[Rfam]
RNA sequence: AUAUACACUGAGUGGCCAGAUUAUUAUGUGUUCUAAGAUUAUAAUAAUCUGGCCACUCAAUGUAUAU
Numbered sequence: 001a002u003a004u005a006c007a008c009u010g011a012g013u014g015g016c017c018a019g020a021u022u023a024u025u026a027u028g029u030g031u032u033c034u035a036a037g038a039u040u041a042u043a044a045u046a047a048u049c050u051g052g053c054c055a056c057u058c059a060a061u062g063u064a065u066a067u
Stems, first nucleotide, its partner, number of pairs: 004064004009059009019049010